[Rfam]
Rfam assigns this 67-nucleotide sequence from Chenopodium quinoa to the family "Small nucleolar RNA U49". The family is grouped with related families in Rfam's "SNORD49 clan". Rfam classes the family as a C/D-box small nucleolar RNA. The match comes from Rfam's covariance-model search (53 bits).
RNA sequence: UCCCAAUGAAGAAAGAUUCCCAAAAAAAGAUAGGAAGUGCCGUCUGACACUUUAAACAAACAGAUUU
Numbered sequence: 001u002c003c004c005a006a007u008g009a010a011g012a013a014a015g016a017u018u019c020c021c022a023a024a025a026a027a028a029g030a031u032a033g034g035a036a037g038u039g040c041c042g043u044c045u046g047a048c049a050c051u052u053u054a055a056a057c058a059a060a061c062a063g064a065u066u067u
Stems, first nucleotide, its partner, number of pairs: 034053006